[Rfam]
RNA: nrdJ RNA
Organism: Streptomyces liangshanensis
RNA sequence: GCUUGCCCCGGGCGCGACCGACCGCGCCCGAGGCAUCACAUACACAUGUGCCACGGGAAGAACAUGGCACUUCAGUGCGUU
Numbered sequence: 001g002c003u004u005g006c007c008c009c010g011g012g013c014g015c016g017a018c019c020g021a022c023c024g025c026g027c028c029c030g031a032g033g034c035a036u037c038a039c040a041u042a043c044a045c046a047u048g049u050g051c052c053a054c055g056g057g058a059a060g061a062a063c064a065u066g067g068c069a070c071u072u073c074a075g076u077g078c079g080u081u
Base pairs, nucleotide, nucleotide: 004035005034006033007032009030010029011028012027013026014025015024016023048070049069050068051067052066053065055063